A member of the RNA family "Small nucleolar RNA SNORA17" from Mus musculus, 130 nucleotides long. About the family: snoRNA ACA 17 belongs to the H/ACA family of snoRNAs and is predicted to guide pseudouridylation of the 28S rRNA at positions U4659 and U4598. It shares the same host gene together with ACA43. The base pairs follow the family's consensus structure, which was predicted with RNAalifold. By type it is an H/ACA-box small nucleolar RNA. Rfam links the family to the GO terms nucleolus and RNA processing. Lineage of the source: Eukaryota > Metazoa > Vertebrata > Amniota > Mus. On this family, see Ofengand and Bakin, J Mol Biol 1997: "Mapping to nucleotide resolution of pseudouridine residues in large subunit ribosomal RNAs from representative eukaryotes, prokaryotes, archaebacteria, mitochondria and chloroplasts". The match comes from Rfam's covariance-model search (97 bits).

[Rfam]
RNA sequence: UCUGUCCCUAGAGGCACUACAGGUGUGGCUGCUGUGUCACAUGUGUGUCAGUAGGUGGCAGAGAGGAGAGAGGCUACACCUUCAUUCUGUGUUCUGACUCACGAAAUCUCAAUGGUUAAAGCCUGAAAAA
Numbered sequence: 001u002c003u004g005u006c007c008c009u010a011g012a013g014g015c016a017c018u019a020c021a022g023g024u025g026u027g028g029c030u031g032c033u034g035u036g037u038c039a040c041a042u043g044u045g046u047g048u049c050a051g052u053a054g055g056u057g058g059c060a061g062a063g064a065g066g067a068g069a070g071a072g073g074c075u076a077c078a079c080c081u082u083c084a085u086u087c088u089g090u091g092u093u094c095u096g097a098c099u100c101a102c103g104a105a106a107u108c109u110c111a112a113u114g115g116u117u118a119a120a121g122c123c124u125g126a127a128a129a130a
Base pairs, nucleotide, nucleotide: 002061003060004059005058006057007055008054009053010052013049014048015047019046020045021044024041025040026039027038028037029036071124072123073122074121075120082115083114084113086111089108090106092105093104094103